Record summary
Rfam assigns this 163-nucleotide RNA from Brassica carinata to the family "U1 spliceosomal RNA". The source organism's lineage runs through Eukaryota, Embryophyta, malvids, Brassicales and Brassica. Pairs were carried over by alignment from the consensus structure, which is taken from published work. Rfam's curators write: U1 is a small nuclear RNA (snRNA) component of the spliceosome (involved in pre-mRNA splicing). Its 5' end forms complementary base pairs with the 5' splice junction, thus defining the 5' donor site of an intron. There are significant differences in sequence and secondary structure between metazoan and yeast U1 snRNAs, the latter being much longer (568 nucleotides as compared to 164 nucleotides in human). Nevertheless, secondary structure predictions suggest that all U1 snRNAs share a 'common core' consisting of helices I, II, the proximal region of III, and IV. This family does not contain the larger yeast sequences. A reference for the family is Charenton et al. (2019), "Mechanism of 5' splice site transfer for human spliceosome activation", Science.
RNA sequence: AUACUUACCUGGACGGGGUCAACUCUUGAUCAUGAAGAAGAGUGGCCUAAGCUAGUGACUUCCAUUGCACAUAACGGAAGGGUGCUUAGCCUAAGGUCUCCCCAAGUGGGAGAGCCUGCGUCAUUAUUUGUGGCAGCGGAGGCCUGCGUUCGCGCGGCUUCUC
Numbered sequence: 001a002u003a004c005u006u007a008c009c010u011g012g013a014c015g016g017g018g019u020c021a022a023c024u025c026u027u028g029a030u031c032a033u034g035a036a037g038a039a040g041a042g043u044g045g046c047c048u049a050a051g052c053u054a055g056u057g058a059c060u061u062c063c064a065u066u067g068c069a070c071a072u073a074a075c076g077g078a079a080g081g082g083u084g085c086u087u088a089g090c091c092u093a094a095g096g097u098c099u100c101c102c103c104a105a106g107u108g109g110g111a112g113a114g115c116c117u118g119c120g121u122c123a124u125u126a127u128u129u130g131u132g133g134c135a136g137c138g139g140a141g142g143c144c145u146g147c148g149u150u151c152g153c154g155c156g157g158c159u160u161c162u163c
Stems, first nucleotide, its partner, number of pairs: 012122004016048006023042005049092001051090003055085003059081003062077002094117003097113003101109002138162005145156004